[Rfam]
RNA sequence: GCUCUGUGGUUGCUAGAGGCUGUUAAACAGUGCAGCACUCAGUGCGUAGAGUGGGCCAGAGCAGUCAGGUGACUUAUGUAAGGGAGCUGUGUUUCCUCAGCAGCUGCCAUAGCCUAGUCACUGGUACAUAG
Numbered sequence: 001g002c003u004c005u006g007u008g009g010u011u012g013c014u015a016g017a018g019g020c021u022g023u024u025a026a027a028c029a030g031u032g033c034a035g036c037a038c039u040c041a042g043u044g045c046g047u048a049g050a051g052u053g054g055g056c057c058a059g060a061g062c063a064g065u066c067a068g069g070u071g072a073c074u075u076a077u078g079u080a081a082g083g084g085a086g087c088u089g090u091g092u093u094u095c096c097u098c099a100g101c102a103g104c105u106g107c108c109a110u111a112g113c114c115u116a117g118u119c120a121c122u123g124g125u126a127c128a129u130a131g
Base pairs, nucleotide, nucleotide: 001056002055003054004053007048008047011044012043013042014041016040017039019036020035021034022033023032069121070120071119072118073117074116078113079112080110082108083107085105086104087103088102089101090100

Annotation:
The record is a 131-nucleotide sequence from Chinchilla lanigera, which matches "Small nucleolar RNA SNORA84" in Rfam. The match comes from Rfam's covariance-model search (87 bits). A reference for the family is Marker et al. (2002), "Experimental RNomics: identification of 140 candidates for small non-messenger RNAs in the plant Arabidopsis thaliana", Curr Biol. The family's RNA type in Rfam is H/ACA-box small nucleolar RNA. Rfam 15.1 lists 757 matches to the family in 629 species. Taxonomically the source falls in Chinchilla (Eukaryota, Metazoa, Craniata, Rodentia).